[Rfam]
RNA sequence: UGGCGCCCAACGUGGGGCCUGGAUACUGGGGACAGCGUGAGGGACACGACAGAGGAAAAAGGGGUGUGCACCCGCUCAAAUAAUUUGGAGAUGCCACGGGAGCCUACCACGACCGAGCCGAAGUUAAGUAGGUCGUUCAAUCAUGGGGAAAGAAUUAAGUCACCAUCAGAUUUACGUGAUACAGUUAAAAGAAGCUCUACAGGCAAGAGGAGUAAAGGUUAAAACUGAGGAUUUAUUUCAUUUCUUUGAUUUUGUAAAGGCCCUUUGUCCCU
Numbered sequence: 001u002g003g004c005g006c007c008c009a010a011c012g013u014g015g016g017g018c019c020u021g022g023a024u025a026c027u028g029g030g031g032a033c034a035g036c037g038u039g040a041g042g043g044a045c046a047c048g049a050c051a052g053a054g055g056a057a058a059a060a061g062g063g064g065u066g067u068g069c070a071c072c073c074g075c076u077c078a079a080a081u082a083a084u085u086u087g088g089a090g091a092u093g094c095c096a097c098g099g100g101a102g103c104c105u106a107c108c109a110c111g112a113c114c115g116a117g118c119c120g121a122a123g124u125u126a127a128g129u130a131g132g133u134c135g136u137u138c139a140a141u142c143a144u145g146g147g148g149a150a151a152g153a154a155u156u157a158a159g160u161c162a163c164c165a166u167c168a169g170a171u172u173u174a175c176g177u178g179a180u181a182c183a184g185u186u187a188a189a190a191g192a193a194g195c196u197c198u199a200c201a202g203g204c205a206a207g208a209g210g211a212g213u214a215a216a217g218g219u220u221a222a223a224a225c226u227g228a229g230g231a232u233u234u235a236u237u238u239c240a241u242u243u244c245u246u247u248g249a250u251u252u253u254g255u256a257a258a259g260g261c262c263c264u265u266u267g268u269c270c271c272u
Stems, first nucleotide, its partner, number of pairs: 006031003012026003036048003082125005092115002095111001098108002133149002136147004156199002159195002207247006216234005257272001259270002262267001
RNA: Mason-Pfizer monkey virus packaging signal
Organism: Nannospalax galili